[Rfam]
RNA sequence: AGGCAAUGAUGACAAAUUUAUGUUUCUCGAUUCUGAUUAGGAUUGUUUCUUAAAUUCAUUUAAUUUAAGGAUCAAACAACUUUUUGAUGACAGUGUUUGUGCGUGUCUGAGCCUC
Dot-bracket structure: ((((..........................................................................................................)))).

A member of the RNA family "small nucleolar RNA snoR126" from Theobroma umbraticum, 115 nucleotides long. By type it is a C/D-box small nucleolar RNA. The family's consensus secondary structure was predicted with RNAalifold. The source organism's lineage runs through Eukaryota, Viridiplantae, Embryophyta, Magnoliopsida and Theobroma. The match comes from Rfam's covariance-model search (58 bits).